Record summary: A member of the RNA family "RNase E 5' UTR element" from Trabulsiella odontotermitis, 335 nucleotides long. Rfam classes the family as a cis-regulatory element. Pairs were carried over by alignment from the consensus structure, which is taken from published work. For this family Rfam cites "An evolutionarily conserved RNA stem-loop functions as a sensor that directs feedback regulation of RNase E gene expression" (Diwa et al., Genes Dev, 2000). Rfam's curators write: This family represents a conserved element found in the 5' UTR of RNase E mRNA. RNase E is a key regulatory enzyme in the pathway of mRNA degradation in E. coli that is able to auto-regulate the degradation of its own mRNA in response to changes in RNase E activity.
RNA sequence: UUUUCCGUGUUGAAUCUUGUUAAAACAAGGAAAUUUGCGGAAUUACCAGUUUUGCCCGACCGAUCAUCCACGCAGCAAUGGCGUAAGACGUAUUGAUCUUUCAGGCAGUUAGCGGGCUGCGGGUUGCAGUCCUUACCGGUAAAUGGAAGCAACUCUGGAGAGUUAUCCCAGGCUGUUCCCCUGUUAAUUGCGCUGUGUUUGUCUCAACAACACAGGCAGCCGACACUCUGCGCCUCUUAAGCGAGCGACAACCGUGAGGUUGGCGACGUGAAUAGACACGAGGCCAUCGGUUCACCCCCGGAAAGGCAUUACUCUGCCCGCAGCUUAGUCGUCAA
Numbered sequence: 001u002u003u004u005c006c007g008u009g010u011u012g013a014a015u016c017u018u019g020u021u022a023a024a025a026c027a028a029g030g031a032a033a034u035u036u037g038c039g040g041a042a043u044u045a046c047c048a049g050u051u052u053u054g055c056c057c058g059a060c061c062g063a064u065c066a067u068c069c070a071c072g073c074a075g076c077a078a079u080g081g082c083g084u085a086a087g088a089c090g091u092a093u094u095g096a097u098c099u100u101u102c103a104g105g106c107a108g109u110u111a112g113c114g115g116g117c118u119g120c121g122g123g124u125u126g127c128a129g130u131c132c133u134u135a136c137c138g139g140u141a142a143a144u145g146g147a148a149g150c151a152a153c154u155c156u157g158g159a160g161a162g163u164u165a166u167c168c169c170a171g172g173c174u175g176u177u178c179c180c181c182u183g184u185u186a187a188u189u190g191c192g193c194u195g196u197g198u199u200u201g202u203c204u205c206a207a208c209a210a211c212a213c214a215g216g217c218a219g220c221c222g223a224c225a226c227u228c229u230g231c232g233c234c235u236c237u238u239a240a241g242c243g244a245g246c247g248a249c250a251a252c253c254g255u256g257a258g259g260u261u262g263g264c265g266a267c268g269u270g271a272a273u274a275g276a277c278a279c280g281a282g283g284c285c286a287u288c289g290g291u292u293c294a295c296c297c298c299c300g301g302a303a304a305g306g307c308a309u310u311a312c313u314c315u316g317c318c319c320g321c322a323g324c325u326u327a328g329u330c331g332u333c334a335a
Base pairs, nucleotide, nucleotide: 003042004041005040006039007038008037015031016030017029018028052108053107054106055105056104058102059101063097064096065095066094070091071090072089075082076081114326115325116324117323118322119321120320121319122318123317124316133304134303136301137300138299139298145180146179148177149176154172155171156170157169158168189218190217191216193215194214195213196212198210199209219291220290221289222288223287232284233283234282235281236280246265247264249262250261251260252259253258